[Rfam]
RNA sequence: AUACGGCAGAUGAUGAUCCUGUAGUUCAUCUGAGCUGCUGAGGCUAUGAAAUUAUUCAUGCUAUAGUCUUUCGCUCCUAUCUGAUGCCGAAC
Numbered sequence: 001a002u003a004c005g006g007c008a009g010a011u012g013a014u015g016a017u018c019c020u021g022u023a024g025u026u027c028a029u030c031u032g033a034g035c036u037g038c039u040g041a042g043g044c045u046a047u048g049a050a051a052u053u054a055u056u057c058a059u060g061c062u063a064u065a066g067u068c069u070u071u072c073g074c075u076c077c078u079a080u081c082u083g084a085u086g087c088c089g090a091a092c
Base pairs, nucleotide, nucleotide: 004089005088006087007086008085

A member of the RNA family "Small nucleolar RNA snR60/Z15/Z230/Z193/J17" from Chara braunii, 92 nucleotides long. For this family Rfam cites "A computational screen for methylation guide snoRNAs in yeast" (Lowe and Eddy, Science, 1999). Pairs were carried over by alignment from the consensus structure. The family is grouped with related families in Rfam's "SNORD77 clan". The organism belongs to Chara, within Eukaryota. It is annotated as a C/D-box small nucleolar RNA. The family has 23 seed sequences and 3,592 matches in Rfam 15.1. A search with the family's covariance model found it, with a score of 58 bits.